[Rfam]
RNA sequence: GGCAUUUGAGGUGGUAGAUUUCGUACCGACCACACGCCGCUGGUAAUGACAAGGGCUUUGCCCUGAGAGAUGCAGGAGGAUGGUACGCCUGCCAAAUGCC
Numbered sequence: 001g002g003c004a005u006u007u008g009a010g011g012u013g014g015u016a017g018a019u020u021u022c023g024u025a026c027c028g029a030c031c032a033c034a035c036g037c038c039g040c041u042g043g044u045a046a047u048g049a050c051a052a053g054g055g056c057u058u059u060g061c062c063c064u065g066a067g068a069g070a071u072g073c074a075g076g077a078g079g080a081u082g083g084u085a086c087g088c089c090u091g092c093c094a095a096a097u098g099c100c
Stems, first nucleotide, its partner, number of pairs: 001100008011033005023086005035067001036056003072092005

A member of the RNA family "skipping-rope RNA", 100 nucleotides long. The family's RNA type in Rfam is small RNA. The base pairs follow the family's consensus structure, which is taken from published work.